[Rfam]
RNA sequence: CCGGCACCGGUUCACCUCGGCUGAUCCAUUGACGGGGACCCGGCGCC
Numbered sequence: 001c002c003g004g005c006a007c008c009g010g011u012u013c014a015c016c017u018c019g020g021c022u023g024a025u026c027c028a029u030u031g032a033c034g035g036g037g038a039c040c041c042g043g044c045g046c047c
Stems, first nucleotide, its partner, number of pairs: 003047003007043004015037005021031001023029001

About this RNA: The record is a 47-nucleotide RNA sequence from Amycolatopsis suaedae, which matches "L31-Actinobacteria ribosomal protein leader" in Rfam. Clan: Ribosomal Protein L31 Leader clan. It is annotated as a cis-regulatory leader.